Rfam assigns this 72-nucleotide RNA sequence from Malacoplasma iowae to the family "tRNA". The family's consensus secondary structure is taken from published work.
[Rfam]
RNA sequence: UGGGCUGUAGCCAAGUGGUAAGGCAAUAGACUUUGACUCUAUCAUGCGUUGGUUCGACCCCAACCAGCCCAG
Numbered sequence: 001u002g003g004g005c006u007g008u009a010g011c012c013a014a015g016u017g018g019u020a021a022g023g024c025a026a027u028a029g030a031c032u033u034u035g036a037c038u039c040u041a042u043c044a045u046g047c048g049u050u051g052g053u054u055c056g057a058c059c060c061c062a063a064c065c066a067g068c069c070c071a072g
Base pairs, nucleotide, nucleotide: 001071002070003069004068005067006066007065010024011023012022026042027041028040029039030038048064049063050062051061052060
The source organism's lineage runs through Bacteria, Mycoplasmatota, Mycoplasmoidales, Malacoplasma and Malacoplasma iowae. Rfam links the family to the GO term triplet codon-amino acid adaptor activity.